[Rfam]
Nucleotides: 357
Base pairs, nucleotide, nucleotide: 001353002352003351004350005349006348007347020326021325022324023323024322025321026320032315033314036311037310038309039308040307043301044300045298046297047296048068049067050066051065052064053080054079055078056077057076115134116133117132118131119130120129121128135174136173137172138171139170140169142164143163144162145161148158149157152188153187154186155185156184192222193221194220195219198216206238208236209235240275241274242273243272244271245270246269247268248267251264252263253262255292256291257290258289259287260286261285330346331345332344333343334342
Number, partner (000 for none) and nucleotide at each position: 001353g002352g003351g004350g005349c006348u007347g008000u009000u010000c011000u012000g013000g014000a015000u016000u017000c018000g019000a020326c021325a022324a023323u024322g025321u026320c027000g028000c029000g030000g031000a032315u033314g034000c035000u036311c037310c038309a039308a040307g041000u042000g043301c044300c045298u046297c047296c048068c049067g050066u051065g052064a053080g054079c055078g056077g057076u058000g059000c060000g061000c062000g063000a064052u065051c066050a067049c068048g069000u070000a071000a072000a073000u074000c075000a076057a077056c078055c079054g080053u081000a082000c083000c084000a085000a086000u087000a088000u089000a090000u091000a092000g093000u094000c095000g096000c097000a098000a099000a100000c101000g102000a103000c104000g105000a106000a107000a108000a109000c110000u111000a112000c113000g114000c115134u116133c117132u118131a119130g120129c121128c122000g123000c124000u125000u126000a127000a128121g129120g130119c131118u132117g133116g134115a135174c136173u137172c138171u139170c140169c141000a142164c143163c144162u145161a146000c147000g148158c149157u150000u151000g152188c153187c154186u155185g156184u157149g158148g159000g160000a161145u162144a163143g164142g165000g166000u167000u168000a169140g170139g171138a172137g173136a174135g175000u176000c177000a178000u179000c180000u181000c182000a183000c184156a185155c186154a187153g188152g189000a190000u191000c192222g193221c194220g195219u196000g197000g198216c199000a200000g201000u202000c203000u204000u205000c206238g207000c208236c209235c210000g211000u212000a213000g214000a215000u216198g217000a218000a219195g220194c221193g222192c223000u224000a225000a226000a227000a228000c229000c230000a231000a232000u233000c234000g235209g236208g237000a238206c239000a240275g241274c242273u243272g244271u245270u246269c247268a248267a249000u250000a251264u252263c253262c254000u255292g256291c257290c258289a259287g260286u261285c262253g263252g264251a265000g266000c267248u268247u269246g270245a271244a272243c273242a274241g275240u276000u277000a278000a279000a280000a281000a282000a283000u284000a285261g286260a287259c288000a289258u290257g291256g292255c293000u294000a295000u296047g297046g298045a299000u300044g301043g302000u303000a304000g305000a306000c307040c308039u309038u310037g311036g312000u313000u314033c315032a316000g317000a318000a319000g320026g321025a322024u323023g324022u325021u326020g327000g328000a329000c330346g331345g332344g333343g334342g335000u336000u337000c338000a339000a340000u341000u342334c343333c344332c345331c346330c347007c348006a349005g350004c351003u352002c353001c354000a355000c356000c357000a